[Rfam]
Nucleotides: 099
Base pairs, nucleotide, nucleotide: 001099002098003097004096044059
Number, partner (000 for none) and nucleotide at each position: 001099g002098g003097a004096c005000a006000a007000g008000g009000a010000u011000g012000a013000g014000c015000a016000u017000g018000a019000u020000a021000u022000u023000g024000g025000u026000c027000u028000c029000g030000u031000u032000c033000g034000u035000c036000g037000u038000a039000a040000c041000g042000g043000u044059g045000u046000c047000g048000u049000u050000u051000u052000g053000a054000u055000a056000c057000c058000u059044u060000g061000u062000c063000g064000a065000c066000c067000a068000u069000u070000c071000u072000g073000a074000u075000a076000u077000a078000u079000c080000a081000c082000c083000a084000c085000c086000c087000a088000u089000a090000a091000a092000c093000u094000g095000a096004g097003u098002c099001c